Background
The record is a 183-nucleotide sequence, which matches "TUC338" in Rfam. Rfam classes the family as a cis-regulatory element.

RNA sequence: UUGAUAACAUAAGAGACUGAAGUCCUUUAUUUAUCCACAAGACAGACAGAUACAGCAUGGGCAGUGGCAGUUCAGGCUCCCCCACACUGUCGCACCAAUGUGCCUCAACUCUGCCCUGGAGGGACCACCUCUACAGCGUGAGAGGGUAGUUCAGUCUCCAUGCCCAUUCAGUCCUUGGCCUCU
Numbered sequence: 001u002u003g004a005u006a007a008c009a010u011a012a013g014a015g016a017c018u019g020a021a022g023u024c025c026u027u028u029a030u031u032u033a034u035c036c037a038c039a040a041g042a043c044a045g046a047c048a049g050a051u052a053c054a055g056c057a058u059g060g061g062c063a064g065u066g067g068c069a070g071u072u073c074a075g076g077c078u079c080c081c082c083c084a085c086a087c088u089g090u091c092g093c094a095c096c097a098a099u100g101u102g103c104c105u106c107a108a109c110u111c112u113g114c115c116c117u118g119g120a121g122g123g124a125c126c127a128c129c130u131c132u133a134c135a136g137c138g139u140g141a142g143a144g145g146g147u148a149g150u151u152c153a154g155u156c157u158c159c160a161u162g163c164c165c166a167u168u169c170a171g172u173c174c175u176u177g178g179c180c181u182c183u
Stems, first nucleotide, its partner, number of pairs: 002170003013158009024146002027144002030142005035136001038113002052105001055103005066091005117133006
Overview
A reference for the family is Braconi et al. (2011), "Expression and functional role of a transcribed noncoding RNA with an ultraconserved element in hepatocellular carcinoma", Proc Natl Acad Sci U S A.